Rfam assigns this 116-nucleotide RNA from Rhododendron williamsianum to the family "Small nucleolar RNA snoR100". The base pairs follow the family's consensus structure, which was predicted with WAR. A search with the family's covariance model found it, with a score of 67 bits. The family has 9 seed sequences and 1,851 matches in Rfam 15.1.

RNA sequence: CAAUGAAGGAAGCAUGGUAAUAUGAACAAAAAUUGAAUUGGGUUUCUAGGCCUUCUUUCUUUCUUUGAUGCCAUUAAUUUGGCUUUGAUUUGGGGGCAUGGUUCGGCAACAAAACA
Numbered sequence: 001c002a003a004u005g006a007a008g009g010a011a012g013c014a015u016g017g018u019a020a021u022a023u024g025a026a027c028a029a030a031a032a033u034u035g036a037a038u039u040g041g042g043u044u045u046c047u048a049g050g051c052c053u054u055c056u057u058u059c060u061u062u063c064u065u066u067g068a069u070g071c072c073a074u075u076a077a078u079u080u081g082g083c084u085u086u087g088a089u090u091u092g093g094g095g096g097c098a099u100g101g102u103u104c105g106g107c108a109a110c111a112a113a114a115c116a
Stems, first nucleotide, its partner, number of pairs: 013024003040099001042097003050089001052087001055082002
Dot-bracket structure: ............(((......)))...............(.(((.....(.(..((........................))....).).....))).).................

Description: Lineage of the source: Eukaryota > Tracheophyta > Euphyllophyta > Spermatophyta > Rhododendron. Rfam classes the family as an H/ACA-box small nucleolar RNA. The literature on the family includes a 2002 paper in Curr Biol by Marker et al., "Experimental RNomics: identification of 140 candidates for small non-messenger RNAs in the plant Arabidopsis thaliana".